[Rfam]
The family of this 314-nucleotide RNA from Minwuia thermotolerans is "Alphaproteobacteria transfer-messenger RNA". A search with the family's covariance model found it, with a score of 255 bits. Rfam's curators write: Bacterial tmRNA, also known as 10Sa RNA or SsrA, is named for its dual tRNA and mRNA-like properties. NCBI's taxonomy places the organism under Bacteria, Pseudomonadota, Alphaproteobacteria, Minwuiaceae, Minwuia. Rfam classes the family as a non-coding RNA gene. The family's consensus secondary structure is taken from published work. The literature on the family includes a 2002 paper in Nucleic Acids Res by Laslett et al., "BRUCE: a program for the detection of transfer-messenger RNA genes in nucleotide sequences".
RNA sequence: GCGCUGGAAAAUUCCUGCCAAGUGCUUAUAUUGCAGGCGUCGGGUGACCGACUAUGGCGAUAAACGCUACGUGGAAUAAGCGUAACGGACCCGGGGGCAGUACCCGGCGCCUCCACCAAUUUCCCGCCUCGCGGGGGCUUCAUGGGGGCGAAACAGGAUCGACGUGCGUGGUAAAGACGUGGUUUUCGCCCGGAAUGGCUCCGCCGUUAUCGGGCCGUUUUCACAAGUGCCAAUGACAACGAAAUGGCGCUCGCUGCCUAAUAUUGCCAGGUAAGCGCGGCACGGGGGACGCCGGGCAACAGAAGUCCCCCACU
Numbered sequence: 001g002c003g004c005u006g007g008a009a010a011a012u013u014c015c016u017g018c019c020a021a022g023u024g025c026u027u028a029u030a031u032u033g034c035a036g037g038c039g040u041c042g043g044g045u046g047a048c049c050g051a052c053u054a055u056g057g058c059g060a061u062a063a064a065c066g067c068u069a070c071g072u073g074g075a076a077u078a079a080g081c082g083u084a085a086c087g088g089a090c091c092c093g094g095g096g097g098c099a100g101u102a103c104c105c106g107g108c109g110c111c112u113c114c115a116c117c118a119a120u121u122u123c124c125c126g127c128c129u130c131g132c133g134g135g136g137g138c139u140u141c142a143u144g145g146g147g148g149c150g151a152a153a154c155a156g157g158a159u160c161g162a163c164g165u166g167c168g169u170g171g172u173a174a175a176g177a178c179g180u181g182g183u184u185u186u187c188g189c190c191c192g193g194a195a196u197g198g199c200u201c202c203g204c205c206g207u208u209a210u211c212g213g214g215c216c217g218u219u220u221u222c223a224c225a226a227g228u229g230c231c232a233a234u235g236a237c238a239a240c241g242a243a244a245u246g247g248c249g250c251u252c253g254c255u256g257c258c259u260a261a262u263a264u265u266g267c268c269a270g271g272u273a274a275g276c277g278c279g280g281c282a283c284g285g286g287g288g289a290c291g292c293c294g295g296g297c298a299a300c301a302g303a304a305g306u307c308c309c310c311c312a313c314u
Stems, first nucleotide, its partner, number of pairs: 039052005056190005066183007081168003085165003091107005108150007191206003196217003200214003278294004284311006